This 85-nucleotide RNA sequence from Aotus nancymaae belongs to the Rfam family "mir-548 microRNA precursor family". The family has 11 seed sequences and 3,009 matches in Rfam 15.1. The literature on the family includes a 2010 paper in Blood by Jima et al., "Deep sequencing of the small RNA transcriptome of normal and malignant human B cells identifies hundreds of novel microRNAs". Rfam links the family to the GO terms RISC complex and miRNA-mediated post-transcriptional gene silencing. It scores 90 bits against the family's covariance model.

[Rfam]
Nucleotides: 085
Base pairs, nucleotide, nucleotide: 001085002084003083004081005080006079007078008077009076010075011074012073013072014071015070016069017068018067019066020065021064022063023062024061025060026059027058028057029056030055031054033052034051035050036049037048038047039046040045
Number, partner (000 for none) and nucleotide at each position: 001085u002084a003083u004081u005080a006079g007078g008077u009076u010075g011074g012073u013072g014071c015070a016069a017068a018067u019066g020065u021064a022063a023062u024061u025060a026059c027058a028057g029056u030055u031054u032000c033052u034051g035050c036049c037048a038047u039046u040045g041000a042000a043000u044000g045040u046039a047038a048037u049036g050035g051034c052033a053000a054031a055030a056029a057028c058027u059026g060025u061024a062023a063022u064021u065020a066019c067018a068017u069016u070015u071014g072013c073012a074011c075010c076009a077008a078007c079006c080005u081004a082000a083003a084002u085001a